[Rfam]
RNA sequence: GCGGAUGGCUGGAUGACCGCGGGCGGCAACGCCCGAGGAAAGUCCGGGCUCCACAAGGCAACGGUGCCGGGUAACCCCCGGCGGGGGCAACCCCAGGGAAAGCGCCACAGAGAACAGACCGCCUGCGGUCCCGCGCUUGCGGAACCGGCCGCCGGCAAGGGUGAAACGGUGGGGUAAGAGCCCACCGCGGGACGGGCAACCGGACCGGCACGGCAAGCCCCACCGGGAGCAAUGCUAAAUAGGGGGUCCGCGCCGGCGGCAACGACGGCAGGGUGGCCUGACCCGAGGACCCCGGGUUGGCAGCUCGAGGCGCAUCGGCAACGAUGCGUCCAGAUGAAUGGUCAUCCAAGGGGCAGCGAUGCCCCCGGACAGAACCCGGCUUACAGGCCAUCCGCGCAA
Numbered sequence: 001g002c003g004g005a006u007g008g009c010u011g012g013a014u015g016a017c018c019g020c021g022g023g024c025g026g027c028a029a030c031g032c033c034c035g036a037g038g039a040a041a042g043u044c045c046g047g048g049c050u051c052c053a054c055a056a057g058g059c060a061a062c063g064g065u066g067c068c069g070g071g072u073a074a075c076c077c078c079c080g081g082c083g084g085g086g087g088c089a090a091c092c093c094c095a096g097g098g099a100a101a102g103c104g105c106c107a108c109a110g111a112g113a114a115c116a117g118a119c120c121g122c123c124u125g126c127g128g129u130c131c132c133g134c135g136c137u138u139g140c141g142g143a144a145c146c147g148g149c150c151g152c153c154g155g156c157a158a159g160g161g162u163g164a165a166a167c168g169g170u171g172g173g174g175u176a177a178g179a180g181c182c183c184a185c186c187g188c189g190g191g192a193c194g195g196g197c198a199a200c201c202g203g204a205c206c207g208g209c210a211c212g213g214c215a216a217g218c219c220c221c222a223c224c225g226g227g228a229g230c231a232a233u234g235c236u237a238a239a240u241a242g243g244g245g246g247u248c249c250g251c252g253c254c255g256g257c258g259g260c261a262a263c264g265a266c267g268g269c270a271g272g273g274u275g276g277c278c279u280g281a282c283c284c285g286a287g288g289a290c291c292c293c294g295g296g297u298u299g300g301c302a303g304c305u306c307g308a309g310g311c312g313c314a315u316c317g318g319c320a321a322c323g324a325u326g327c328g329u330c331c332a333g334a335u336g337a338a339u340g341g342u343c344a345u346c347c348a349a350g351g352g353g354c355a356g357c358g359a360u361g362c363c364c365c366c367g368g369a370c371a372g373a374a375c376c377c378g379g380c381u382u383a384c385a386g387g388c389c390a391u392c393c394g395c396g397c398a399a
Base pairs, nucleotide, nucleotide: 001395002394003393004392005391006390007389008388009387010386011384012346013345014344015343016342017341018340020035021034022033023032024031025030040382041381042380044379045378046377047376048375049229050228051227052226057279058278062225063224064223065222066221067081068080069079070078071077082096083094084093085092086091097220098219102218103217104214105213106212119160120159121156122155123154125152126151127150128149129148168186169185170184171183172182173181187209188207189206190205193202194201195200233302234301235300236299243293244292245291246290247289248288271284272283273282274281310329311328312327313326314325315324316323317322
RNA: Bacterial RNase P class A
Organism: Paracoccus suum